[Rfam]
RNA: mir-2797 microRNA precursor family
Organism: Bombyx mori
RNA sequence: UAUGAUUAACAUAAGUAGGUUUUAUUCAGUUUGUGUUUCAUUCAAACCGUAUAAACCCUACUUUUGCUGAUGAUAA
Numbered sequence: 001u002a003u004g005a006u007u008a009a010c011a012u013a014a015g016u017a018g019g020u021u022u023u024a025u026u027c028a029g030u031u032u033g034u035g036u037u038u039c040a041u042u043c044a045a046a047c048c049g050u051a052u053a054a055a056c057c058c059u060a061c062u063u064u065u066g067c068u069g070a071u072g073a074u075a076a
Stems, first nucleotide, its partner, number of pairs: 001075003005071004010066002013063007021055005027049001029047005